[Rfam]
RNA sequence: UGACCUCGGAUCAGGUAGGAAUACGCGCUGAACUUAAGCAUAUCAAUAAGCGCAGGAAAAGAAACCAACAGGGAUUGCCUCAGUAACGGCGAGUGAAGCGGCAACAGCUCAAAUUUGAAAUCUGGCCUCCCGGGGUCCGAGUUGUAAUUUGUAGAGGAUGUUUUGGGUACCGCCCCGGUUUAAAUUUCUUGGAACAGAAUGUCAGAGAGGGUGAGAAUCCCGUCUUGGACCGGUGGUAGGGCCUGUGUAAAACUCCUUCGACGAGUCGAGUUGUUUGGGAAUGCAGCUCAAAAUGGGUGGUAAAUUUCAUCUAAAGCUAAAUAUUGGCCAGAGACCGAUAGCGCACAAGUAGAGUGAUCGAAAGAUGAAAAGAACUUUGAAAAGAGAGUUAAACAGUAUGUGAAAUUGUUGAAAGGGAAG
Numbered sequence: 001u002g003a004c005c006u007c008g009g010a011u012c013a014g015g016u017a018g019g020a021a022u023a024c025g026c027g028c029u030g031a032a033c034u035u036a037a038g039c040a041u042a043u044c045a046a047u048a049a050g051c052g053c054a055g056g057a058a059a060a061g062a063a064a065c066c067a068a069c070a071g072g073g074a075u076u077g078c079c080u081c082a083g084u085a086a087c088g089g090c091g092a093g094u095g096a097a098g099c100g101g102c103a104a105c106a107g108c109u110c111a112a113a114u115u116u117g118a119a120a121u122c123u124g125g126c127c128u129c130c131c132g133g134g135g136u137c138c139g140a141g142u143u144g145u146a147a148u149u150u151g152u153a154g155a156g157g158a159u160g161u162u163u164u165g166g167g168u169a170c171c172g173c174c175c176c177g178g179u180u181u182a183a184a185u186u187u188c189u190u191g192g193a194a195c196a197g198a199a200u201g202u203c204a205g206a207g208a209g210g211g212u213g214a215g216a217a218u219c220c221c222g223u224c225u226u227g228g229a230c231c232g233g234u235g236g237u238a239g240g241g242c243c244u245g246u247g248u249a250a251a252a253c254u255c256c257u258u259c260g261a262c263g264a265g266u267c268g269a270g271u272u273g274u275u276u277g278g279g280a281a282u283g284c285a286g287c288u289c290a291a292a293a294u295g296g297g298u299g300g301u302a303a304a305u306u307u308c309a310u311c312u313a314a315a316g317c318u319a320a321a322u323a324u325u326g327g328c329c330a331g332a333g334a335c336c337g338a339u340a341g342c343g344c345a346c347a348a349g350u351a352g353a354g355u356g357a358u359c360g361a362a363a364g365a366u367g368a369a370a371a372g373a374a375c376u377u378u379g380a381a382a383a384g385a386g387a388g389u390u391a392a393a394c395a396g397u398a399u400g401u402g403a404a405a406u407u408g409u410u411g412a413a414a415g416g417g418a419a420g
Stems, first nucleotide, its partner, number of pairs: 024055001025053005035042002065072002076103004086094002106318004112149004118143002121140002124137004154259002156256003161252004166243003170239001172237001175233006184200001186199004203207001210220002268289007295312005352359002375386004
RNA: Eukaryotic large subunit ribosomal RNA, nucleotides 1 to 420
Organism: Cladophialophora carrionii